[Rfam]
RNA sequence: UUUGUCCUUGUCUUUGGGGAGCAAAGUAUUCCAUGAGCGUUAAGUGAGAAUACUGUUGCUGAAACCUGACAAAUUAAUUUAACCCGCAUCCGUAUUUUAAACGACACGAGAUGCAAUUUUUGAGAAG
Numbered sequence: 001u002u003u004g005u006c007c008u009u010g011u012c013u014u015u016g017g018g019g020a021g022c023a024a025a026g027u028a029u030u031c032c033a034u035g036a037g038c039g040u041u042a043a044g045u046g047a048g049a050a051u052a053c054u055g056u057u058g059c060u061g062a063a064a065c066c067u068g069a070c071a072a073a074u075u076a077a078u079u080u081a082a083c084c085c086g087c088a089u090c091c092g093u094a095u096u097u098u099a100a101a102c103g104a105c106a107c108g109a110g111a112u113g114c115a116a117u118u119u120u121u122g123a124g125a126a127g
Stems, first nucleotide, its partner, number of pairs: 005019004021059004025054007037045002086114005093106001095104002
The record is a 127-nucleotide RNA from Ooceraea biroi, which matches "U4atac minor spliceosomal RNA" in Rfam. Gene Ontology terms of the family: mRNA 5'-splice site recognition, pre-mRNA 5'-splice site binding and spliceosomal tri-snRNP complex assembly. Pairs were carried over by alignment from the consensus structure, which is taken from published work. It is annotated as a spliceosomal small nuclear RNA. It scores 80 bits against the family's covariance model. U4atac is an essential component of the minor U12-type spliceosome complex which is required for removal of the rarer class of eukaryotic introns (AT-AC, U12-type). The organism belongs to Ooceraea, within Eukaryota.